[Rfam]
RNA sequence: UUGACGCUGUGGUCCCAGGAACCGGCCCGGCCGCCGAGGACGUCCGCCCCGAAGUGGUCGCCGUCGGCCAGCACGCCGAGCGUGGAGUCGUCGCCGUACUCGGUCGUGCCGAUCCUGGCCACCUUGCCGUGGGCGAGCAGGUGGAGCCGGUCGGCGGGCGAACCCGCGGUCACGAUCACGUCGCCCGUCUCGUACUCGCGCUGGACGAACCGGUCGGCGAGCACGCCCAGCGCCGAGUCGUCCUCGAAACCGCGCAGCAGCGGCAGCUCCCGGAGCUUCUGCGGGAUCACGCGGACCUCGGUGCCGGUGCUGGUGAACUCGACCCGCCCGUCGCCCAGCGCGAAGGUGAGCCGCCGGUUGACCCGGUAAGUACCCGCCGUGACCUGCACCCAGGGCAGCAUGCGCAGCAGCCAUCGCGGCGAGAUGCCCUGCAUCUGCGGCGCGGUCUUGGUCGUGGUGGCCAGUUUGCGCGCCGCGGCGGUGCCCAGGCUCAGCGAGGCGUCGCCG
Numbered sequence: 001u002u003g004a005c006g007c008u009g010u011g012g013u014c015c016c017a018g019g020a021a022c023c024g025g026c027c028c029g030g031c032c033g034c035c036g037a038g039g040a041c042g043u044c045c046g047c048c049c050c051g052a053a054g055u056g057g058u059c060g061c062c063g064u065c066g067g068c069c070a071g072c073a074c075g076c077c078g079a080g081c082g083u084g085g086a087g088u089c090g091u092c093g094c095c096g097u098a099c100u101c102g103g104u105c106g107u108g109c110c111g112a113u114c115c116u117g118g119c120c121a122c123c124u125u126g127c128c129g130u131g132g133g134c135g136a137g138c139a140g141g142u143g144g145a146g147c148c149g150g151u152c153g154g155c156g157g158g159c160g161a162a163c164c165c166g167c168g169g170u171c172a173c174g175a176u177c178a179c180g181u182c183g184c185c186c187g188u189c190u191c192g193u194a195c196u197c198g199c200g201c202u203g204g205a206c207g208a209a210c211c212g213g214u215c216g217g218c219g220a221g222c223a224c225g226c227c228c229a230g231c232g233c234c235g236a237g238u239c240g241u242c243c244u245c246g247a248a249a250c251c252g253c254g255c256a257g258c259a260g261c262g263g264c265a266g267c268u269c270c271c272g273g274a275g276c277u278u279c280u281g282c283g284g285g286a287u288c289a290c291g292c293g294g295a296c297c298u299c300g301g302u303g304c305c306g307g308u309g310c311u312g313g314u315g316a317a318c319u320c321g322a323c324c325c326g327c328c329c330g331u332c333g334c335c336c337a338g339c340g341c342g343a344a345g346g347u348g349a350g351c352c353g354c355c356g357g358u359u360g361a362c363c364c365g366g367u368a369a370g371u372a373c374c375c376g377c378c379g380u381g382a383c384c385u386g387c388a389c390c391c392a393g394g395g396c397a398g399c400a401u402g403c404g405c406a407g408c409a410g411c412c413a414u415c416g417c418g419g420c421g422a423g424a425u426g427c428c429c430u431g432c433a434u435c436u437g438c439g440g441c442g443c444g445g446u447c448u449u450g451g452u453c454g455u456g457g458u459g460g461c462c463a464g465u466u467u468g469c470g471c472g473c474c475g476c477g478g479c480g481g482u483g484c485c486c487a488g489g490c491u492c493a494g495c496g497a498g499g500c501g502u503c504g505c506c507g
Stems, first nucleotide, its partner, number of pairs: 006390001008388005015381001018328002024325002027321001029318001032315001035313001037311002040308002046304002049301004054233002058229001060227001062225003065111004077102004082097004117222001120219001122217002127212001129210002132206001134204001136202002141197001143196002148192002153189007165174002240290002244286002251281002254278001256277003260271001262269001329342003351379001353377002356374002361371002391431007399423001401421001403418003407415001437476004442471003448464005477506002480503003484499002488495001

The record is a 507-nucleotide sequence from Saccharopolyspora erythraea, which matches "Saccharopolyspora sRNA 350" in Rfam. The base pairs follow the family's consensus structure, which was predicted with RNAfold. The match comes from Rfam's covariance-model search (206 bits). The family has 2 seed sequences and 1,170 matches in Rfam 15.1. Gene Ontology term of the family: regulation of secondary metabolite biosynthetic process. For this family Rfam cites "Prediction and characterization of small non-coding RNAs related to secondary metabolites in Saccharopolyspora erythraea" (Liu et al., PLoS One, 2013).